[Rfam]
RNA sequence: GUCUUAUCAAGAGUGGCGGAGGGACUGGCCCGAUGAAGCCCAGCAACCGAUAGAUUGGCUCAUUUUCCAAUUAUAUACGGUGCUAAUUCCUGCAGUUUUUAUAUUUAAAACUGGUAGAUGAGAG
Number, nucleotide and partner (000 for none) at each position: 001g000002u123003c122004u121005u120006a119007u118008c117009a000010a000011g000012a000013g041014u000015g040016g039017c038018g000019g000020a000021g031022g030023g029024a000025c092026u000027g090028g089029c023030c022031c021032g000033a000034u000035g000036a000037a000038g017039c016040c015041c013042a084043g083044c082045a081046a000047c080048c079049g076050a000051u075052a074053g000054a000055u000056u000057g000058g000059c000060u000061c000062a000063u000064u000065u000066u000067c000068c000069a000070a000071u000072u000073a000074u052075a051076u049077a000078c000079g048080g047081u045082g044083c043084u042085a000086a000087u000088u116089c028090c027091u000092g025093c113094a112095g111096u110097u109098u108099u000100u000101a000102u000103a000104u000105u000106u000107a000108a098109a097110a096111c095112u094113g093114g000115u000116a088117g008118a007119u006120g005121a004122g003123a002124g000
SAM riboswitch aptamer (S box leader): a 124-nucleotide RNA from Clostridium neonatale. Taxonomically the source falls in Clostridium (Bacteria, Bacillati, Bacillota, Clostridiaceae). The family's consensus secondary structure is taken from published work. Rfam's curators write: The SAM riboswitch is found upstream of a number of genes which code for proteins involved in methionine or cysteine biosynthesis in Gram-positive bacteria. The SAM riboswitch acts at the level of transcription termination control. The predicted structure consists of a complex stem-loop region followed by a single stem loop terminator region. An alternative and mutually exclusive form involves bases in the 3' segment of helix 1 with those in the 5' region of helix 5 to form a structure termed the anti-terminator form. This entry represents the conserved core of the complex structure involving helices 1-4.